[Rfam]
HNH endonuclease-associated RNA and ORF (HEARO) RNA: a 204-nucleotide RNA from [Phormidium ambiguum] IAM M-71. The source organism's lineage runs through Bacteria, Cyanobacteriota, Cyanophyceae, Aerosakkonematales and Floridanema. The literature on the family includes a 2009 paper in Nature by Weinberg et al., "Exceptional structured noncoding RNAs revealed by bacterial metagenome analysis". Pairs were carried over by alignment from the consensus structure, which is taken from published work. It scores 127 bits against the family's covariance model. Rfam 15.1 lists 952 matches to the family in 249 species.
RNA sequence: GUCAUACCCGUAGGGUUGACGGGAGCUUGAAAAAGCUCUAACUUGACCAGGCUAAGUGCUUAGCGCACUCCGUUAUUCAGUUCAUGAAACCUACAAAUACGUGCCAGUUUGUAGCUCUUUCGUGCAGUUUUAAACAGGUGUAAUGAGUUAAACGAGUGAGCUGUGCCUAACAAGGCUGAAUAACAUUGUCGAGGCAAACUUAAC
Numbered sequence: 001g002u003c004a005u006a007c008c009c010g011u012a013g014g015g016u017u018g019a020c021g022g023g024a025g026c027u028u029g030a031a032a033a034a035g036c037u038c039u040a041a042c043u044u045g046a047c048c049a050g051g052c053u054a055a056g057u058g059c060u061u062a063g064c065g066c067a068c069u070c071c072g073u074u075a076u077u078c079a080g081u082u083c084a085u086g087a088a089a090c091c092u093a094c095a096a097a098u099a100c101g102u103g104c105c106a107g108u109u110u111g112u113a114g115c116u117c118u119u120u121c122g123u124g125c126a127g128u129u130u131u132a133a134a135c136a137g138g139u140g141u142a143a144u145g146a147g148u149u150a151a152a153c154g155a156g157u158g159a160g161c162u163g164u165g166c167c168u169a170a171c172a173a174g175g176c177u178g179a180a181u182a183a184c185a186u187u188g189u190c191g192a193g194g195c196a197a198a199c200u201u202a203a204c
Stems, first nucleotide, its partner, number of pairs: 001020001007014002025036004050190003054186001055069005072184011087120002091114008099200001102196004122166009134157002138153002141150003